U7 small nuclear RNA: a 44-nucleotide sequence from Pan troglodytes. A search with the family's covariance model found it, with a score of 38 bits. Rfam's curators write: Animal histone pre-mRNAs are spliced by a different mechanism than nuclear pre-mRNAs and self-splicing introns.
RNA sequence: AGAAUUUGUUUAGCAGGUUUUCUGGUCUUCACUGGAAAGCCCCU
Numbered sequence: 001a002g003a004a005u006u007u008g009u010u011u012a013g014c015a016g017g018u019u020u021u022c023u024g025g026u027c028u029u030c031a032c033u034g035g036a037a038a039g040c041c042c043c044u
Base pairs, nucleotide, nucleotide: 016041017040018039019038020037021036022035023034024033025032026031